Background
PyrR binding site: a 108-nucleotide RNA sequence from Oceanobacillus halophilus.
RNA sequence: AUGCCCUUUUAAACAUUAGUCCCGUGAGGCUAACAAAGGAACGGAAUAAUACUUUAACUAUAAGUAUAUUCAAAAUCCCUUUUUCUCAUGGAAGAAGGGAUUUUUUAU
Numbered sequence: 001a002u003g004c005c006c007u008u009u010u011a012a013a014c015a016u017u018a019g020u021c022c023c024g025u026g027a028g029g030c031u032a033a034c035a036a037a038g039g040a041a042c043g044g045a046a047u048a049a050u051a052c053u054u055u056a057a058c059u060a061u062a063a064g065u066a067u068a069u070u071c072a073a074a075a076u077c078c079c080u081u082u083u084u085c086u087c088a089u090g091g092a093a094g095a096a097g098g099g100a101u102u103u104u105u106u107a108u
Base pairs, nucleotide, nucleotide: 005039006038007037008036009035016033017032018031019030020029021028049067050066051065052064053063054062072104073103074102075101076100077099078098079097080096081095082094083093084092085091
From the family's description: This family represents the PyrR binding site and terminator structure. This RNA structure is found upstream of a variety of genes involved in pyrimidine biosynthesis and transport. The alignment also includes a portion of the antiterminator structure. It scores 62 bits against the family's covariance model.